[Rfam]
RNA sequence: GCGGUACCGGUUCACGCCUGAGAGGCGACCCGGCGACC
Numbered sequence: 001g002c003g004g005u006a007c008c009g010g011u012u013c014a015c016g017c018c019u020g021a022g023a024g025g026c027g028a029c030c031c032g033g034c035g036a037c038c
Base pairs, nucleotide, nucleotide: 003038004037005036007033008032009031010030015027016026017025018024019023

Description:
Shown here is a 38-nucleotide sequence, a member of the family "L31-Actinobacteria ribosomal protein leader". It is annotated as a cis-regulatory leader. Pairs were carried over by alignment from the consensus structure, which is taken from published work.